Shown here is a 233-nucleotide sequence, a member of the family "RT-2 RNA".
The family's RNA type in Rfam is small RNA.

[Rfam]
RNA sequence: AUAGGUCAAUCAAAGUAACCCUCGUGGCGAAAUUUGUACUUCUGCAGAAGGGAGGCUUGUUCCUGUAGCAUAGUCAAAUAUGCUCGAAACAGUGUGUCGAUGAUAUGCACCGGAUGACGCUUCUUGCAUGGCCGAUGAAUACGGGAAUAGUCGGUUUCAUGGUGCGGACUACGCAGUUAGAACUCCCGCCUACAAUAAGACUGUACGGCACACCCAAUUUUCUUGUAUAUAAG
Numbered sequence: 001a002u003a004g005g006u007c008a009a010u011c012a013a014a015g016u017a018a019c020c021c022u023c024g025u026g027g028c029g030a031a032a033u034u035u036g037u038a039c040u041u042c043u044g045c046a047g048a049a050g051g052g053a054g055g056c057u058u059g060u061u062c063c064u065g066u067a068g069c070a071u072a073g074u075c076a077a078a079u080a081u082g083c084u085c086g087a088a089a090c091a092g093u094g095u096g097u098c099g100a101u102g103a104u105a106u107g108c109a110c111c112g113g114a115u116g117a118c119g120c121u122u123c124u125u126g127c128a129u130g131g132c133c134g135a136u137g138a139a140u141a142c143g144g145g146a147a148u149a150g151u152c153g154g155u156u157u158c159a160u161g162g163u164g165c166g167g168a169c170u171a172c173g174c175a176g177u178u179a180g181a182a183c184u185c186c187c188g189c190c191u192a193c194a195a196u197a198a199g200a201c202u203g204u205a206c207g208g209c210a211c212a213c214c215c216a217a218u219u220u221u222c223u224u225g226u227a228u229a230u231a232a233g
Base pairs, nucleotide, nucleotide: 004040005039006038019027020026067084068083069082070081071080072079092213093212094211095210096209097208098207099206101205102169104167106166107165108164109163110162111161119127120126130156131155132154133153134152135151136150173204174203175202176201177200180191